[Rfam]
RNA sequence: AAUGGCGAUGAUGAACACUUUUUACAGUUUCACAGACCUGUAAUGAUUGCGGAUAUGAUCGCUUUUAUUGAACAUCUAAGGGACUGAGCCAUU
Dot-bracket structure: .(((((.................................................................................))))).

Rfam assigns this 93-nucleotide sequence from Salvia splendens to the family "Small nucleolar RNA SNORD25".
On this family, see Qu et al., Nucleic Acids Res 2001: "Identification of 10 novel snoRNA gene clusters from Arabidopsis thaliana".
Rfam 15.1 lists 985 matches to the family in 241 species.
Rfam classes the family as a C/D-box small nucleolar RNA.
Clan: SNORD25 clan.